[Rfam]
Notes
This 132-nucleotide sequence from Ameiurus melas belongs to the Rfam family "Small nucleolar RNA SNORA69". Rfam's curators write: U69 is a member of the H/ACA class of small nucleolar RNAs (snoRNAs) which act as guides in the the modification of uridines to pseudouridines. Rfam classes the family as an H/ACA-box small nucleolar RNA. The base pairs follow the family's consensus structure, which was predicted with PFOLD. NCBI's taxonomy places the organism under Eukaryota, Chordata, Teleostomi, Characiphysae, Ameiurus.
RNA sequence: AGAGCAGGCCGCAAUUACAGUGCUUCAUUUUGUGGAAGGACUGCCAUUAUCCUGCUGAAAGCAACAUCCUGCUUCAGAGUACCGGCUCCUCACCUGUGUGCGAGAGAUGUGUACACUGUAGUAGGGACAACU
Dot-bracket structure: ..((((((.........((((.((((........)))).)))).......))))))..........(((((((.(((.......(.(.(((.(......).))).).).......))).)))))))......
Numbered sequence: 001a002g003a004g005c006a007g008g009c010c011g012c013a014a015u016u017a018c019a020g021u022g023c024u025u026c027a028u029u030u031u032g033u034g035g036a037a038g039g040a041c042u043g044c045c046a047u048u049a050u051c052c053u054g055c056u057g058a059a060a061g062c063a064a065c066a067u068c069c070u071g072c073u074u075c076a077g078a079g080u081a082c083c084g085g086c087u088c089c090u091c092a093c094c095u096g097u098g099u100g101c102g103a104g105a106g107a108u109g110u111g112u113a114c115a116c117u118g119u120a121g122u123a124g125g126g127a128c129a130a131c132u
Stems, first nucleotide, its partner, number of pairs: 003056006018043004023038004067126007075118003085108001087106001089104003093100001